[Rfam]
RNA sequence: ACAGACCUCGCGAAAGAGACCGUCCAGCUGUCAUGGGCGGCGCCGAAGGCGCAAAUCCGCCCGGAAUCGCUCAGGCACCAAGGAUUGCGUGGUCUGC
Numbered sequence: 001a002c003a004g005a006c007c008u009c010g011c012g013a014a015a016g017a018g019a020c021c022g023u024c025c026a027g028c029u030g031u032c033a034u035g036g037g038c039g040g041c042g043c044c045g046a047a048g049g050c051g052c053a054a055a056u057c058c059g060c061c062c063g064g065a066a067u068c069g070c071u072c073a074g075g076c077a078c079c080a081a082g083g084a085u086u087g088c089g090u091g092g093u094c095u096g097c
Stems, first nucleotide, its partner, number of pairs: 006092002009089005020040006042076003045072002049070003056063001